Rfam assigns this 80-nucleotide sequence from Chrysochloris asiatica to the family "mir-92 microRNA precursor family". The family has 23 seed sequences and 1,347 matches in Rfam 15.1. A search with the family's covariance model found it, with a score of 84 bits. Gene Ontology terms of the family: RISC complex and miRNA-mediated post-transcriptional gene silencing. Rfam describes the family as follows. This family represents the microRNA precursor mir-92. Human miR-92 has two predicted hairpin precursor sequences: mir-92-1 on chromosome 13 and mir-92-2 on chromosome X. miR-92 has also been cloned from mouse embryonic stem cells. The mature sequence is excised from the 3' arm of the hairpin. Clan: mir-92 microRNA precursor clan.

RNA sequence: AUUCAUCUGUGGGUGGGGAUUGGGUGCAUUACUUAUGCUUUCUUUGAAGUAUUGCACUUGUCCCGGCCUGUGGAAGAAGG
Number, nucleotide and partner (000 for none) at each position: 001a000002u000003u000004c076005a000006u074007c000008u000009g071010u070011g069012g068013g067014u066015g000016g064017g063018g062019a061020u060021u000022g058023g057024g000025u000026g055027c054028a053029u000030u051031a050032c049033u048034u047035a000036u000037g000038c000039u000040u000041u000042c000043u000044u000045u000046g000047a034048a033049g032050u031051a030052u000053u028054g027055c026056a000057c023058u022059u000060g020061u019062c018063c017064c016065g000066g014067c013068c012069u011070g010071u009072g000073g000074a006075a000076g004077a000078a000079g000080g000